About this RNA
The record is a 136-nucleotide sequence from Astyanax mexicanus, which matches "Small nucleolar RNA SNORA68" in Rfam. The literature on the family includes a 1997 paper in Genes Dev by Ganot et al., "The family of box ACA small nucleolar RNAs is defined by an evolutionarily conserved secondary structure and ubiquitous sequence elements essential for RNA accumulation". Rfam 15.1 lists 1,079 matches to the family in 643 species. Lineage of the source: Eukaryota > Neopterygii > Teleostei > Acestrorhamphidae > Astyanax. U68 is a member of the H/ACA class of small nucleolar RNAs (snoRNAs) which act as guides in the the modification of uridines to pseudouridines.
[Rfam]
RNA sequence: GUUGCACACAAACCCAAAGGUCAUUAUAUUCAUGUGUAAUGUUCUUGCUAUGUGUGCGCAAAGAAAAAUCCAAGGACCUUGUCGCCUUUCAUAUGCUCUUAUGUGCCAAUGGAAGUGAAUUCAAGGUUCAACAUGU
Numbered sequence: 001g002u003u004g005c006a007c008a009c010a011a012a013c014c015c016a017a018a019g020g021u022c023a024u025u026a027u028a029u030u031c032a033u034g035u036g037u038a039a040u041g042u043u044c045u046u047g048c049u050a051u052g053u054g055u056g057c058g059c060a061a062a063g064a065a066a067a068a069u070c071c072a073a074g075g076a077c078c079u080u081g082u083c084g085c086c087u088u089u090c091a092u093a094u095g096c097u098c099u100u101a102u103g104u105g106c107c108a109a110u111g112g113a114a115g116u117g118a119a120u121u122c123a124a125g126g127u128u129c130a131a132c133a134u135g136u
Base pairs, nucleotide, nucleotide: 003058004057005056006055007054008053009052019044020043022041023040024039025038026037027036028035074129075128076127077126078125079124080123086115087114088113089112090111091110092109095106096105
Description:
It is annotated as an H/ACA-box small nucleolar RNA.